Background
Shown here is a 135-nucleotide sequence from Amborella trichopoda, a member of the family "Small nucleolar RNA snoR74". The family's consensus secondary structure was predicted with WAR. A search with the family's covariance model found it, with a score of 76 bits. Rfam links the family to the GO terms RNA processing and nucleolus. The source organism's lineage runs through Eukaryota, Viridiplantae, Amborellales, Amborellaceae and Amborella. For this family Rfam cites "Experimental RNomics: identification of 140 candidates for small non-messenger RNAs in the plant Arabidopsis thaliana" (Marker et al., Curr Biol, 2002).

RNA sequence: AAAAAAUCAGAGGUCUGUACUUUUCUCCUCCGAGUUGGCCUCUCAUAACCUUCAGGGAAAUUAUGUGCACCAUUAAUGGGUGAACCUUUGUAAACUAUACUUGUGAAUAAAUGUUCAAUAAAUGUUGCGACAUUA
Dot-bracket structure: ....((....((.((.(.................).)).)).........)).............((((.((((......(((((.(.......................).)))))...)))).))))......